[Rfam]
RNA sequence: CGGCUGUAAUGGUCAAGUUGGUUGAAGGCUUUCAUUACUCUUCUCCCGCUACCCCAUCUCCAUUGGAACCCCUUAGUGGCGUCCAGUGCGAAUGCUGCGGUGGCUUCUCACUCGCACGGGUAACCUGCGAUGCUGCGGUAGCCCUAAGCAAUGAUGAUGACACUUGAGGGAGGCUUCACUCUGCAGAGGCAUCAUCACCGUCGCAUGGCGUACUGGAUUACGAUCGCUAAGGGCUUGGGGUAGUGGCUGAAGAUGGAGAUGUCAACUCCGUU
Numbered sequence: 001c002g003g004c005u006g007u008a009a010u011g012g013u014c015a016a017g018u019u020g021g022u023u024g025a026a027g028g029c030u031u032u033c034a035u036u037a038c039u040c041u042u043c044u045c046c047c048g049c050u051a052c053c054c055c056a057u058c059u060c061c062a063u064u065g066g067a068a069c070c071c072c073u074u075a076g077u078g079g080c081g082u083c084c085a086g087u088g089c090g091a092a093u094g095c096u097g098c099g100g101u102g103g104c105u106u107c108u109c110a111c112u113c114g115c116a117c118g119g120g121u122a123a124c125c126u127g128c129g130a131u132g133c134u135g136c137g138g139u140a141g142c143c144c145u146a147a148g149c150a151a152u153g154a155u156g157a158u159g160a161c162a163c164u165u166g167a168g169g170g171a172g173g174c175u176u177c178a179c180u181c182u183g184c185a186g187a188g189g190c191a192u193c194a195u196c197a198c199c200g201u202c203g204c205a206u207g208g209c210g211u212a213c214u215g216g217a218u219u220a221c222g223a224u225c226g227c228u229a230a231g232g233g234c235u236u237g238g239g240g241u242a243g244u245g246g247c248u249g250a251a252g253a254u255g256g257a258g259a260u261g262u263c264a265a266c267u268c269c270g271u272u
Stems, first nucleotide, its partner, number of pairs: 002014003020267006030258004039253002042250002046246009071233002074229005080222003083216008092206004097201004102143001104141002107138002109135002112130005118125002144148001152197007163188003170181003
Shown here is a 272-nucleotide RNA sequence from Colletotrichum noveboracense, a member of the family "Fungal signal recognition particle RNA". Clan: SRP clan. It scores 145 bits against the family's covariance model. The source organism's lineage runs through Eukaryota, Fungi, Hypocreomycetidae, Glomerellaceae and Colletotrichum gloeosporioides species complex. Rfam classes the family as a non-coding RNA gene. Its family is annotated with signal recognition particle, plasma membrane targeting, signal recognition particle, endoplasmic reticulum targeting and SRP-dependent cotranslational protein targeting to membrane, signal sequence recognition in the Gene Ontology.